[Rfam]
RNA sequence: GGGCUGAGGAGGGUGGGCUCGGGAGGGGCCCGGUCAUUUCUCAUCUAACCCUAACUGAGCAGGGCGUAGGCGCCGCGCUUUUGUUUCCCCGCGCGCUGUUUUUCUCGCUGACUUUCAGCGCGUGGGAAAAGCCUUGGCCUACCGCCGUCCACCGUUCAUUUCGCAGUAAACAAAAAAUGUCAGCCGCUGGCCGGUUCGCCCUUCCCGGGGACCUGCGGUGGCUCGCCCGCCCGGCCCCCGUGCCCCGCCUGAGGCCGCGGUCGGCCCGGGGCUUCUCCGGAGGUGCCCAAUGCCGCCGCGAAGAGUUAGGCUCUGUCAGCCGCGGGUCCCUCGGGGGCCAAGGGCGAGGCGCAGGCCGUCUGGCCGCAGGGAGAGGAACGGAGCGGGUCCCCCAGCGUGGUGCGCUUCCCUGAGCUGUGGGACUUGCACCCGGGACUCGGCUCAAACACGC
Numbered sequence: 001g002g003g004c005u006g007a008g009g010a011g012g013g014u015g016g017g018c019u020c021g022g023g024a025g026g027g028g029c030c031c032g033g034u035c036a037u038u039u040c041u042c043a044u045c046u047a048a049c050c051c052u053a054a055c056u057g058a059g060c061a062g063g064g065c066g067u068a069g070g071c072g073c074c075g076c077g078c079u080u081u082u083g084u085u086u087c088c089c090c091g092c093g094c095g096c097u098g099u100u101u102u103u104c105u106c107g108c109u110g111a112c113u114u115u116c117a118g119c120g121c122g123u124g125g126g127a128a129a130a131g132c133c134u135u136g137g138c139c140u141a142c143c144g145c146c147g148u149c150c151a152c153c154g155u156u157c158a159u160u161u162c163g164c165a166g167u168a169a170a171c172a173a174a175a176a177a178u179g180u181c182a183g184c185c186g187c188u189g190g191c192c193g194g195u196u197c198g199c200c201c202u203u204c205c206c207g208g209g210g211a212c213c214u215g216c217g218g219u220g221g222c223u224c225g226c227c228c229g230c231c232c233g234g235c236c237c238c239c240g241u242g243c244c245c246c247g248c249c250u251g252a253g254g255c256c257g258c259g260g261u262c263g264g265c266c267c268g269g270g271g272c273u274u275c276u277c278c279g280g281a282g283g284u285g286c287c288c289a290a291u292g293c294c295g296c297c298g299c300g301a302a303g304a305g306u307u308a309g310g311c312u313c314u315g316u317c318a319g320c321c322g323c324g325g326g327u328c329c330c331u332c333g334g335g336g337g338c339c340a341a342g343g344g345c346g347a348g349g350c351g352c353a354g355g356c357c358g359u360c361u362g363g364c365c366g367c368a369g370g371g372a373g374a375g376g377a378a379c380g381g382a383g384c385g386g387g388u389c390c391c392c393c394a395g396c397g398u399g400g401u402g403c404g405c406u407u408c409c410c411u412g413a414g415c416u417g418u419g420g421g422a423c424u425u426g427c428a429c430c431c432g433g434g435a436c437u438c439g440g441c442u443c444a445a446a447c448a449c450g451c
Base pairs, nucleotide, nucleotide: 018209019208020207021206022205023204024203025202026201027200028199029198032192033191034190035189036188077132078131079130080129081128090124091123092122093121094120095119096118097117098116107184108183109182110181111180112179113177114176115175212370213369214368215367216366217365218364225350226349227348228346229345230344231343232342235337236336237335238334239333240332244326245325246324247323248322256300257299258298259297260296262295263294264293265292268288269287270286302314303313304312305311381443382442383441384440385438386437387436388435389434390433391432400429401428402427403426404425407422408421409420410419
Shown here is a 451-nucleotide RNA sequence, a member of the family "Vertebrate telomerase RNA". Telomerase is a ribonucleoprotein reverse transcriptase that synthesises telomeric DNA. Telomerase RNAs differ greatly in sequence and structure between vertebrates, ciliates and yeasts, but they share a 5' pseudoknot structure close to the template sequence. Vertebrate telomerase RNAs have a 3' H/ACA snoRNA-like domain. The family has 37 seed sequences and 523 matches in Rfam 15.1. The family's RNA type in Rfam is non-coding RNA gene. Its family is annotated with telomerase catalytic core complex, telomerase activity and telomere maintenance via telomerase in the Gene Ontology.